[Rfam]
A member of the RNA family "Group II catalytic intron D1-D4-3" from Koleobacter methoxysyntrophicus, 169 nucleotides long. The match comes from Rfam's covariance-model search (62 bits). The organism belongs to Koleobacter, within Bacteria. Gene Ontology term of the family: Group II intron splicing. The family has 406 seed sequences and 4,274 matches in Rfam 15.1. Group II introns are found in rRNA, tRNA and mRNA of organelles in fungi, plants and protists, and also in mRNA in bacteria.
RNA sequence: UCACUGGCGACGGUGGGGUCUGAAGGAAGCCGAAGGGGAACUUGGAACAUAGCGGAAAGCGAACCGAGGUUGGCCAGCCAGGUGGGUAGCCUUGCAAAGAGCGGGAAAGCCCAAAAGCUGGAAAACCUGGCAGGUUAGGACGGAUGCGUUCAAGUUCAGGCAAGCAGGC
Numbered sequence: 001u002c003a004c005u006g007g008c009g010a011c012g013g014u015g016g017g018g019u020c021u022g023a024a025g026g027a028a029g030c031c032g033a034a035g036g037g038g039a040a041c042u043u044g045g046a047a048c049a050u051a052g053c054g055g056a057a058a059g060c061g062a063a064c065c066g067a068g069g070u071u072g073g074c075c076a077g078c079c080a081g082g083u084g085g086g087u088a089g090c091c092u093u094g095c096a097a098a099g100a101g102c103g104g105g106a107a108a109g110c111c112c113a114a115a116a117g118c119u120g121g122a123a124a125a126c127c128u129g130g131c132a133g134g135u136u137a138g139g140a141c142g143g144a145u146g147c148g149u150u151c152a153a154g155u156u157c158a159g160g161c162a163a164g165c166a167g168g169c
Stems, first nucleotide, its partner, number of pairs: 001016006029169003037161001040155006048146003064143003073135003077131007084112004090105003